[Rfam]
RNA sequence: UGACUGCGAUGAAGCGAGAGGUUGCCGACACACCCGGCCGCUUUGCCAUGGCGCUGUGUUGGAUAAUUUUCGUGGAGAAUGUCUAGAAAAUAGGCGA
Numbered sequence: 001u002g003a004c005u006g007c008g009a010u011g012a013a014g015c016g017a018g019a020g021g022u023u024g025c026c027g028a029c030a031c032a033c034c035c036g037g038c039c040g041c042u043u044u045g046c047c048a049u050g051g052c053g054c055u056g057u058g059u060u061g062g063a064u065a066a067u068u069u070u071c072g073u074g075g076a077g078a079a080u081g082u083c084u085a086g087a088a089a090a091u092a093g094g095c096g097a
Stems, first nucleotide, its partner, number of pairs: 014073003018070004025062008080096004085091001
S10-Clostridia ribosomal protein leader: a 97-nucleotide sequence from Lysinibacillus sp. BF-4. For this family Rfam cites "Discovery of 20 novel ribosomal leader candidates in bacteria and archaea" (Eckert and Weinberg, BMC Microbiol, 2020). The match comes from Rfam's covariance-model search (39 bits). Taxonomically the source falls in Lysinibacillus (Bacteria, Bacillati, Bacilli, Bacillaceae).